[Rfam]
RNA sequence: GGAGACUUGAGAAGGGCUGUCCCUAGUACGAGAGGACCGGGACGGACGAACCUCUGGUGUGCCAGUUGUUCCGCCAGGAGCACGGCUGGUUGGCUACGUUCGGAAAGGAUAACCGCUGAAAGCAUCUAAGCGGGAAGCCUGCUUCAAGAUGAGGUCUCCCACACGGUUAACGUGGUAAGGCCCCCAGCUAGACGACUGGGUUGAUAGGCCGGACGUGGAAGCCCAGCAAUGGGUGAAGCUGACCGGUACUAAUAGGCCGAGG
Number, nucleotide and partner (000 for none) at each position: 001g159002g158003a157004g156005a155006c154007u153008u152009g000010a000011g145012a144013a143014g142015g000016g000017c045018u044019g043020u042021c041022c040023c039024u000025a000026g000027u000028a000029c000030g000031a000032g000033a000034g000035g000036a000037c000038c000039g023040g022041g021042a020043c019044g018045g017046a000047c102048g101049a100050a099051c098052c000053u000054c000055u096056g095057g094058u000059g000060u000061g000062c089063c088064a087065g086066u085067u082068g081069u080070u079071c078072c077073g000074c000075c000076a000077g072078g071079a070080g069081c068082a067083c000084g000085g066086c065087u064088g063089g062090u000091u000092g000093g000094c057095u056096a055097c000098g051099u050100u049101c048102g047103g000104a000105a000106a140107g139108g138109a000110u000111a000112a000113c133114c132115g131116c130117u129118g000119a000120a000121a000122g000123c000124a000125u000126c000127u000128a000129a117130g116131c115132g114133g113134g000135a000136a000137g000138c108139c107140u106141g000142c014143u013144u012145c011146a000147a000148g000149a000150u000151g000152a008153g007154g006155u005156c004157u003158c002159c001160c000161a000162c174163a173164c172165g000166g000167u000168u000169a000170a000171c000172g164173u163174g162175g000176u260177a000178a000179g258180g257181c256182c255183c200184c199185c198186a197187g196188c000189u000190a000191g000192a000193c000194g000195a000196c187197u186198g185199g184200g183201u000202u000203g000204a000205u251206a250207g249208g247209c246210c245211g244212g243213a000214c000215g239216u000217g000218g000219a000220a000221g234222c233223c232224c231225a230226g000227c000228a000229a000230u225231g224232g223233g222234u221235g000236a000237a000238g000239c215240u000241g000242a000243c212244c211245g210246g209247u208248a000249c207250u206251a205252a000253u000254a000255g182256g181257c180258c179259g000260a176261g000262g000
RNA: Bacterial large subunit ribosomal RNA, nucleotides 2853 to 3114
Organism: Jiangella asiatica